[Rfam]
Nucleotides: 171
Stems, first nucleotide, its partner, number of pairs: 018038005040078010057068004081170005
Number, partner (000 for none) and nucleotide at each position: 001000c002000u003000u004000a005000a006000g007000g008000g009000a010000g011000u012000a013000g014000c015000c016000a017000u018038c019037c020036g021035c022034a023000u024000a025000u026000u027000u028000c029000a030000g031000a032000u033000g034022u035021g036020c037019g038018g039000a040078g041077c042076c043075g044074u045073u046072a047071u048070c049069a050000a051000c052000a053000u054000a055000a056000u057068u058067g059066c060065c061000a062000u063000a064000g065060g066059g067058c068057a069049u070048g071047g072046u073045a074044a075043c076042g077041g078040c079000a080000u081170c082169u083168u084167g085166a086000u087000a088000c089000c090000g091000a092000g093000a094000c095000a096000g097000g098000c099000a100000a101000g102000a103000c104000u105000u106000a107000a108000g109000a110000c111000a112000c113000g114000c115000a116000g117000a118000g119000c120000c121000g122000c123000c124000g125000g126000u127000g128000g129000g130000c131000a132000g133000c134000g135000c136000c137000u138000g139000u140000u141000g142000u143000g144000u145000c146000u147000u148000u149000u150000u151000u152000g153000u154000u155000u156000g157000c158000c159000c160000a161000c162000a163000g164000u165000u166085u167084u168083g169082a170081g171000u
Source information:
Shown here is a 171-nucleotide RNA from Neisseria arctica, a member of the family "Manganese Mn2+ riboswitch aptamer (yybP-ykoY)". Rfam 15.1 lists 1,126 matches to the family in 1,062 species. The match comes from Rfam's covariance-model search (48 bits).